[Rfam]
RNA sequence: GCCGGGUGUGGUGGCGCGCGCCUGUAAUCCAAGCUGCUGGGAGGCUGAGGCUGGAGGAUCGUUUGAGCUCAGGAGCUCUGAGCUGUAGUGGACUAUGCCGAUCGGGUGUCCGCACUAAGUUCGAUAUCGAUAUGGUUCUCCUGGGGGAGCCCGGGACCACCAGGUCGCCUAAGGAGGGGUGAACUGGCCCAGGUCGGCAACGGAGCAGGUCAAAGCCCCCGUACCGCUCAGUAGUGGGAUCGCGCCCGUGAAUAGACGCUGCAGUUCAGCCUGAGUAAGACAGCGAGACUCGGUCUUUU
Numbered sequence: 001g002c003c004g005g006g007u008g009u010g011g012u013g014g015c016g017c018g019c020g021c022c023u024g025u026a027a028u029c030c031a032a033g034c035u036g037c038u039g040g041g042a043g044g045c046u047g048a049g050g051c052u053g054g055a056g057g058a059u060c061g062u063u064u065g066a067g068c069u070c071a072g073g074a075g076c077u078c079u080g081a082g083c084u085g086u087a088g089u090g091g092a093c094u095a096u097g098c099c100g101a102u103c104g105g106g107u108g109u110c111c112g113c114a115c116u117a118a119g120u121u122c123g124a125u126a127u128c129g130a131u132a133u134g135g136u137u138c139u140c141c142u143g144g145g146g147g148a149g150c151c152c153g154g155g156a157c158c159a160c161c162a163g164g165u166c167g168c169c170u171a172a173g174g175a176g177g178g179g180u181g182a183a184c185u186g187g188c189c190c191a192g193g194u195c196g197g198c199a200a201c202g203g204a205g206c207a208g209g210u211c212a213a214a215g216c217c218c219c220c221g222u223a224c225c226g227c228u229c230a231g232u233a234g235u236g237g238g239a240u241c242g243c244g245c246c247c248g249u250g251a252a253u254a255g256a257c258g259c260u261g262c263a264g265u266u267c268a269g270c271c272u273g274a275g276u277a278a279g280a281c282a283g284c285g286a287g288a289c290u291c292g293g294u295c296u297u298u299u
Base pairs, nucleotide, nucleotide: 001045002044003043004023005022006021007020008019009018010017028042029041030040047297048296049295050294051293052292053291054290059286060285061284062283063282067276068275069274070273071272072271073270078269079268080267081266082265083264084263085262086261087260088259089258090257093255094254095253096252098250103248104247105246106245107244108243109242110238111237113236114235115234116233117232119229122226123225125223126222127221128167129166130165131164133162134161135160136159139156140155141154142153143152144151145150168174169173176219177218178217179216180215185212186211187210188209189208194203195202196201
Source information:
Metazoan signal recognition particle RNA: a 299-nucleotide RNA sequence from Kryptolebias marmoratus. The organism belongs to Kryptolebias, within Eukaryota. Rfam's curators write: The signal recognition particle (SRP) is a universally conserved ribonucleoprotein. Gene Ontology terms of the family: SRP-dependent cotranslational protein targeting to membrane, signal sequence recognition and signal recognition particle, endoplasmic reticulum targeting. By type it is a non-coding RNA gene. The literature on the family includes a 2002 paper in Curr Opin Struct Biol by Wild et al., "Towards the structure of the mammalian signal recognition particle". The family's consensus secondary structure is taken from published work.